A member of the RNA family "c-di-GMP-I riboswitch aptamer" from Faecalibacterium sp. An121, 97 nucleotides long. It scores 49 bits against the family's covariance model. The family's consensus secondary structure is taken from published work. The organism belongs to Faecalibacterium, within Bacteria.
Nucleotides: 097
Stems, first nucleotide, its partner, number of pairs: 012037002017032006040091003045087003048082003055077004
Number, partner (000 for none) and nucleotide at each position: 001000a002000u003000a004000u005000c006000u007000g008000u009000u010000u011000g012037g013036c014000a015000a016000a017032c018031c019030u020029g021028u022027a023000g024000a025000a026000a027022u028021g029020c030019a031018g032017g033000g034000g035000c036013g037012c038000a039000a040091a041090g042089c043000a044000u045087g046086a047085a048082g049081c050080c051000u052000g053000a054000c055077g056076u057075g058074u059000c060000u061000g062000c063000a064000g065000c066000u067000g068000g069000c070000u071000g072000c073000g074058g075057c076056g077055c078000a079000a080050g081049g082048u083000g084000g085047u086046u087045c088000g089042g090041c091040u092000g093000c094000a095000a096000u097000g